[Rfam]
RNA sequence: GUUGAUAAAUGCCACAAUCGUCGCGAGGCGGUGUCGGAAAGCCAUGGGUCUCCUGUAGGAGAACGCCGGGUUGCCUGC
Numbered sequence: 001g002u003u004g005a006u007a008a009a010u011g012c013c014a015c016a017a018u019c020g021u022c023g024c025g026a027g028g029c030g031g032u033g034u035c036g037g038a039a040a041g042c043c044a045u046g047g048g049u050c051u052c053c054u055g056u057a058g059g060a061g062a063a064c065g066c067c068g069g070g071u072u073g074c075c076u077g078c
Stems, first nucleotide, its partner, number of pairs: 012037002017032006040072004045068003049062005

c-di-GMP-I riboswitch aptamer: a 78-nucleotide RNA from Candidatus Electrothrix aarhusensis.
Lineage of the source: Bacteria > Pseudomonadati > Desulfobulbia > Desulfobulbaceae > Candidatus Electrothrix.
Rfam's curators write: GEMM was predicted in a large-scale screen for bacterial structured RNA regulatory elements.
Gene Ontology term of the family: cyclic-di-GMP binding.
The base pairs follow the family's consensus structure, which is taken from published work.
The match comes from Rfam's covariance-model search (47 bits).